RNA sequence: UCAGCAUAAAACAGCUGUAGCAGAAGCAUUCAUGUUGUGGGCCCUGUCAGAUUCCAAUGAAUCUGCUAAAUUCUGCU
Numbered sequence: 001u002c003a004g005c006a007u008a009a010a011a012c013a014g015c016u017g018u019a020g021c022a023g024a025a026g027c028a029u030u031c032a033u034g035u036u037g038u039g040g041g042c043c044c045u046g047u048c049a050g051a052u053u054c055c056a057a058u059g060a061a062u063c064u065g066c067u068a069a070a071u072u073c074u075g076c077u
Stems, first nucleotide, its partner, number of pairs: 014043001015040002019077007026038003048065007
RNA: Mammalian CPEB3 ribozyme